[Rfam]
RNA sequence: UUUCCAAAACAACAAAUGCCCUACCUCUCAUUUGUCCUUGCGGCUCCGAUGACCGCGCCAGUGUGAAUCAGAAAAACACUAAAUUC
Numbered sequence: 001u002u003u004c005c006a007a008a009a010c011a012a013c014a015a016a017u018g019c020c021c022u023a024c025c026u027c028u029c030a031u032u033u034g035u036c037c038u039u040g041c042g043g044c045u046c047c048g049a050u051g052a053c054c055g056c057g058c059c060a061g062u063g064u065g066a067a068u069c070a071g072a073a074a075a076a077c078a079c080u081a082a083a084u085u086c
Base pairs, nucleotide, nucleotide: 032066033065034064037061038060039057040056041055042054043053045051